RNA sequence: GGAUUUUUGAGGGGACCUGUCCUUAGUACGAGAGGACCGGGAUGGACGAGCCUCUGGUGGGCCUGUUGUGGCGCCAGCCGCAGCGCAGGGUAGCUACGCUCGGAUGAGAUAAGCGCUGAAAGCAUCUAAGUGCGAAACUCACCCCAAGAUGAGAAAUCCCUUUAAGGGCCGUGGGAGACGACCACGUCGAUAGGCGGCAGGUGUAAAGGUGGAAACACCAUAGCCGAGCCGUACUAAUUGCCCGGGAG
Numbered sequence: 001g002g003a004u005u006u007u008u009g010a011g012g013g014g015a016c017c018u019g020u021c022c023u024u025a026g027u028a029c030g031a032g033a034g035g036a037c038c039g040g041g042a043u044g045g046a047c048g049a050g051c052c053u054c055u056g057g058u059g060g061g062c063c064u065g066u067u068g069u070g071g072c073g074c075c076a077g078c079c080g081c082a083g084c085g086c087a088g089g090g091u092a093g094c095u096a097c098g099c100u101c102g103g104a105u106g107a108g109a110u111a112a113g114c115g116c117u118g119a120a121a122g123c124a125u126c127u128a129a130g131u132g133c134g135a136a137a138c139u140c141a142c143c144c145c146a147a148g149a150u151g152a153g154a155a156a157u158c159c160c161u162u163u164a165a166g167g168g169c170c171g172u173g174g175g176a177g178a179c180g181a182c183c184a185c186g187u188c189g190a191u192a193g194g195c196g197g198c199a200g201g202u203g204u205a206a207a208g209g210u211g212g213a214a215a216c217a218c219c220a221u222a223g224c225c226g227a228g229c230c231g232u233a234c235u236a237a238u239u240g241c242c243c244g245g246g247a248g
Stems, first nucleotide, its partner, number of pairs: 001159008011145004017045007047102005055096003062089005067082006106140003113133005163245001166243004170186005191236003194232005200225002204220001208219004

Shown here is a 248-nucleotide part of an RNA from Rufibacter ruber, a member of the family "Bacterial large subunit ribosomal RNA". The organism belongs to Rufibacter, within Bacteria. Its Rfam clan is "LSU clan". It scores 2754 bits against the family's covariance model.